[Rfam]
RNA sequence: UGUUGGUCCUCCCGCAACGAUAAACCGUGAACCUGGUCAGGCCCGGAAGGGAGCAGCCACAGCGGUGGAUUCGUGUGCCGGGAUGUGGCUGGCAGGU
Numbered sequence: 001u002g003u004u005g006g007u008c009c010u011c012c013c014g015c016a017a018c019g020a021u022a023a024a025c026c027g028u029g030a031a032c033c034u035g036g037u038c039a040g041g042c043c044c045g046g047a048a049g050g051g052a053g054c055a056g057c058c059a060c061a062g063c064g065g066u067g068g069a070u071u072c073g074u075g076u077g078c079c080g081g082g083a084u085g086u087g088g089c090u091g092g093c094a095g096g097u
Stems, first nucleotide, its partner, number of pairs: 004091005010083005015075001017074004024066005034059004042051003
Dot-bracket structure: ...(((((.((((((.((((...(((((.....((((....(((....)))....))))..)))))....)))))...)))))...)))))......

Source information: This 97-nucleotide RNA from Marinobacterium stanieri belongs to the Rfam family "Bacterial small signal recognition particle RNA". From the family's description: The signal recognition particle (SRP) is a universally conserved ribonucleoprotein involved in the co-translational targeting of proteins to membranes. It is annotated as a non-coding RNA gene. Its family is annotated with SRP-dependent cotranslational protein targeting to membrane, signal sequence recognition and signal recognition particle, plasma membrane targeting in the Gene Ontology.